[Rfam]
RNA: CpoB/ybgF ICR thermometer
RNA sequence: UCAGAUCUCGAUCGUUUCUUACGGUAAAGAGAAACCUGCGGUUCUGGGUCAUGACGAAGCUGCAUGGUCCAAAAACCGUCGUGUGGUCCUGGUAUACUAAGAGCAUUGCAUGAACAGUAACUUCAGACGUCAUCUCGUG
Number, nucleotide and partner (000 for none) at each position: 001u047002c046003a045004g044005a000006u000007c041008u040009c000010g000011a000012u000013c000014g035015u034016u033017u032018c031019u030020u029021a000022c000023g000024g000025u000026a000027a000028a000029g020030a019031g018032a017033a016034a015035c014036c000037u000038g000039c000040g008041g007042u000043u000044c004045u003046g002047g001048g000049u000050c000051a000052u000053g000054a138055c137056g000057a135058a000059g133060c000061u000062g130063c129064a000065u127066g000067g000068u000069c000070c000071a000072a000073a000074a000075a118076c117077c000078g115079u113080c112081g111082u110083g109084u108085g000086g106087u105088c000089c103090u102091g000092g000093u000094a000095u000096a000097c000098u000099a000100a000101g000102a090103g089104c000105a087106u086107u000108g084109c083110a082111u081112g080113a079114a000115c078116a000117g076118u075119a000120a000121c000122u000123u000124c000125a000126g000127a065128c000129g063130u062131c000132a000133u059134c000135u057136c000137g055138u054139g000